[Rfam]
RNA sequence: GGUGUUACAGGGCCUAAUGGAAUAAGCGCAGCGGACCCGGGGGCGGUACCCGGCGCCUCCACCAACGACACAACCAUCCUGAUCAGAUGGUGUCAGUGGGGGCGAAUUAGGAUCGACGCGCGUGGUAAAGAUUUUGUCUGCACUCGGCAUGGUACCGCCGUUAUCGGGCCAGAUUAUAGUUGCAAACGACAACAAUGAUCAGGUUGCAGUUGCUGCGUAA
Numbered sequence: 001g002g003u004g005u006u007a008c009a010g011g012g013c014c015u016a017a018u019g020g021a022a023u024a025a026g027c028g029c030a031g032c033g034g035a036c037c038c039g040g041g042g043g044c045g046g047u048a049c050c051c052g053g054c055g056c057c058u059c060c061a062c063c064a065a066c067g068a069c070a071c072a073a074c075c076a077u078c079c080u081g082a083u084c085a086g087a088u089g090g091u092g093u094c095a096g097u098g099g100g101g102g103c104g105a106a107u108u109a110g111g112a113u114c115g116a117c118g119c120g121c122g123u124g125g126u127a128a129a130g131a132u133u134u135u136g137u138c139u140g141c142a143c144u145c146g147g148c149a150u151g152g153u154a155c156c157g158c159c160g161u162u163a164u165c166g167g168g169c170c171a172g173a174u175u176a177u178a179g180u181u182g183c184a185a186a187c188g189a190c191a192a193c194a195a196u197g198a199u200c201a202g203g204u205u206g207c208a209g210u211u212g213c214u215g216c217g218u219a220a
Stems, first nucleotide, its partner, number of pairs: 001144005016133003027122003031119003037053005054104009145160004